[Rfam]
RNA sequence: AGCACUUUUAUGUGCUGGCCGAUGUAAGUCCGACGUGCCGUUCCGGCACGGCCCGAAGUGGCUCGGGAUUAC
Numbered sequence: 001a002g003c004a005c006u007u008u009u010a011u012g013u014g015c016u017g018g019c020c021g022a023u024g025u026a027a028g029u030c031c032g033a034c035g036u037g038c039c040g041u042u043c044c045g046g047c048a049c050g051g052c053c054c055g056a057a058g059u060g061g062c063u064c065g066g067g068a069u070u071a072c
Stems, first nucleotide, its partner, number of pairs: 001016005024072004030067002035049005050063004
S15-Methanomicrobia ribosomal protein leader: a 72-nucleotide RNA from Methanofollis liminatans. Clan: Ribosomal Protein S15 Leader clan. A reference for the family is Eckert and Weinberg (2020), "Discovery of 20 novel ribosomal leader candidates in bacteria and archaea", BMC Microbiol.